[Rfam]
RNA: Ruegeria cis2 sRNA
Organism: Vannielia litorea
RNA sequence: AUUGAACUGUAAUGAGGAUUAUAGUUGAUAAAGGCAAAUCCCCGGGCCUGGUCGAUGGUGUGAAACAGCGGAUUCCAGGAGAAGAAGGGCAGCAUGUAGGCCGGCAGGUUGUUGGCCAGGAACAUCUUGCCCGAGGCCACCAUGUUGGCCCGCG
Number, nucleotide and partner (000 for none) at each position: 001a000002u037003u036004g035005a000006a000007c033008u032009g000010u031011a000012a029013u028014g000015a026016g025017g000018a000019u000020u000021a000022u000023a000024g000025u016026u015027g000028a013029u012030a000031a010032a008033g007034g000035c004036a003037a002038a000039u000040c058041c057042c000043c054044g053045g052046g000047c000048c000049u000050g000051g000052u045053c044054g043055a000056u000057g041058g040059u000060g000061u000062g000063a000064a000065a000066c000067a000068g153069c152070g151071g000072a000073u083074u082075c081076c000077a000078g000079g000080a000081g075082a074083a073084g000085a000086a000087g000088g149089g000090c147091a146092g145093c144094a143095u142096g141097u000098a000099g000100g000101c135102c133103g132104g131105c129106a128107g127108g126109u000110u124111g000112u121113u120114g000115g000116c000117c000118a000119g000120g113121a112122a000123c000124a110125u000126c108127u107128u106129g105130c000131c104132c103133g102134a000135g101136g000137c000138c000139a000140c000141c096142a095143u094144g093145u092146u091147g090148g000149c088150c000151c070152g069153c068154g000